[Rfam]
RNA sequence: AAGGGGUUGUGUGUGGUGUCCAUGUUAUGUGCUGCCGUCUGGCUGUGUCUUACAGUCUGUGCGGCGGUGCUCACUCCACACCUGCAGCCAUAGAGCCACUGGAGAUCAUAGUACUGACCUGUGACGUCUCUGACUCCUCGCCACGGGCCAGCCUUCAUACUCUCCUGGGCUG
Dot-bracket structure: ............((((.......((...(((((((.(((.(..(((.....)))..).).)).)))))).).)).......))))...............(((((........(((.((.(((..(..(...)..).....))).)).))).........))))).......
Record summary
The record is a 172-nucleotide sequence from Hucho hucho, which matches "Small nucleolar RNA SNORA23" in Rfam. The base pairs follow the family's consensus structure, which was predicted with RNAalifold. Rfam describes the family as follows. The members of this family belong to the H/ACA class of snoRNAs which are thought to guide the sites of modification of uridines to pseudouridines. This family includes human snoRNA ACA23 (SNORA23) and mouse snoMBI-1. Rfam 15.1 lists 1,092 matches to the family in 632 species. Rfam classes the family as an H/ACA-box small nucleolar RNA. The source organism's lineage runs through Eukaryota, Teleostomi, Teleostei, Osteoglossocephalai and Hucho.